[Rfam]
RNA sequence: AAUAGGAGAAUGACAAAUCAGAUUUUUCUUCCUCAUUUUUAAUAUUUUUGGUUGGGUUUGAAUUUUUUCAGAAGGAAAAAGUUAAAGAUCAGGAUAAAAAAUUUGAUUUGUCAUUCUCUUAUU
Numbered sequence: 001a002a003u004a005g006g007a008g009a010a011u012g013a014c015a016a017a018u019c020a021g022a023u024u025u026u027u028c029u030u031c032c033u034c035a036u037u038u039u040u041a042a043u044a045u046u047u048u049u050g051g052u053u054g055g056g057u058u059u060g061a062a063u064u065u066u067u068u069c070a071g072a073a074g075g076a077a078a079a080a081g082u083u084a085a086a087g088a089u090c091a092g093g094a095u096a097a098a099a100a101a102u103u104u105g106a107u108u109u110g111u112c113a114u115u116c117u118c119u120u121a122u123u
Base pairs, nucleotide, nucleotide: 001123002122003121004120005119006118007117008116009115010114011113012112013111014110015109016108017107018106019105020104021103022102023101024100025099026098027097030094031093032092033091035089036088037087038086039085041083042082045079046078047077048076
RNA: MIR7504 microRNA precursor family
Organism: Gossypium anomalum